[Rfam]
RNA: Yersinia sRNA 155(RyfD)
Organism: Izhakiella capsodis
RNA sequence: UAAGACGAUCCGACGUGGUGUAUUUUUUCCAGCAAAAAGCGGGUCAAUAAUCUUGAAAAUUUGAGGACAGACCUCAUUUAGUCUCCAGUAGCAAUGUUGACCUGUAGGGGGAAAUUAUGCGUCUGGAUCGUCUUAC
Numbered sequence: 001u002a003a004g005a006c007g008a009u010c011c012g013a014c015g016u017g018g019u020g021u022a023u024u025u026u027u028u029c030c031a032g033c034a035a036a037a038a039g040c041g042g043g044u045c046a047a048u049a050a051u052c053u054u055g056a057a058a059a060u061u062u063g064a065g066g067a068c069a070g071a072c073c074u075c076a077u078u079u080a081g082u083c084u085c086c087a088g089u090a091g092c093a094a095u096g097u098u099g100a101c102c103u104g105u106a107g108g109g110g111g112a113a114a115u116u117a118u119g120c121g122u123c124u125g126g127a128u129c130g131u132c133u134u135a136c
Base pairs, nucleotide, nucleotide: 002134003133004132005131006130007129008128009127010126011125012124013122014121015120016119017118020115021114023041025039026038027037051066052065053064054063055062056061067078070075082112083111084110085109086108089106090105